[Rfam]
RNA: transfer-messenger RNA
Organism: Limnospira maxima
RNA sequence: GGGGCAUUACUGGUUUCGACAGGACGAUCAAACCGACCUUGUGAUUCAGGCCGAGAGUGAGCCUCCUCUCGAAAAUCAAAGGUUCAAAAAAAAUGUAAGUGCGAACAACGUCGUACCUUUCGCUCGCGUUAAAGCCGCUGUUGCUUAAUAACGAAUACCUCCUAUAGGUUCGAGCACUCACGGUUUGACUCCGUUAAGGACUGUGGGUUAAACCCCAACGGAUGCUUCGGUUAAGCGUUCUCUGGUAGCUUAACUGAAAAAGACUCUACUAGAGAAUCCUACCGUCAGGGAUAAGUGACGGUUCCCGCCCUAAGGAUUAGAGGGGCUAUGUCUGUGAACGAGCAGGGCGUAAAUAGUCGUUUUGGACAUGGGUUCGAUUCCCAUAUGCUCCAUUU
Numbered sequence: 001g002g003g004g005c006a007u008u009a010c011u012g013g014u015u016u017c018g019a020c021a022g023g024a025c026g027a028u029c030a031a032a033c034c035g036a037c038c039u040u041g042u043g044a045u046u047c048a049g050g051c052c053g054a055g056a057g058u059g060a061g062c063c064u065c066c067u068c069u070c071g072a073a074a075a076u077c078a079a080a081g082g083u084u085c086a087a088a089a090a091a092a093a094u095g096u097a098a099g100u101g102c103g104a105a106c107a108a109c110g111u112c113g114u115a116c117c118u119u120u121c122g123c124u125c126g127c128g129u130u131a132a133a134g135c136c137g138c139u140g141u142u143g144c145u146u147a148a149u150a151a152c153g154a155a156u157a158c159c160u161c162c163u164a165u166a167g168g169u170u171c172g173a174g175c176a177c178u179c180a181c182g183g184u185u186u187g188a189c190u191c192c193g194u195u196a197a198g199g200a201c202u203g204u205g206g207g208u209u210a211a212a213c214c215c216c217a218a219c220g221g222a223u224g225c226u227u228c229g230g231u232u233a234a235g236c237g238u239u240c241u242c243u244g245g246u247a248g249c250u251u252a253a254c255u256g257a258a259a260a261a262g263a264c265u266c267u268a269c270u271a272g273a274g275a276a277u278c279c280u281a282c283c284g285u286c287a288g289g290g291a292u293a294a295g296u297g298a299c300g301g302u303u304c305c306c307g308c309c310c311u312a313a314g315g316a317u318u319a320g321a322g323g324g325g326c327u328a329u330g331u332c333u334g335u336g337a338a339c340g341a342g343c344a345g346g347g348c349g350u351a352a353a354u355a356g357u358c359g360u361u362u363u364g365g366a367c368a369u370g371g372g373u374u375c376g377a378u379u380c381c382c383a384u385a386u387g388c389u390c391c392a393u394u395u
Stems, first nucleotide, its partner, number of pairs: 001391007020364009034349002037346003042341001045338002047334005052071005058086007137159001139157004176208006183201004190222006226258009239275006276317005284309001288306003297326001299324001368384005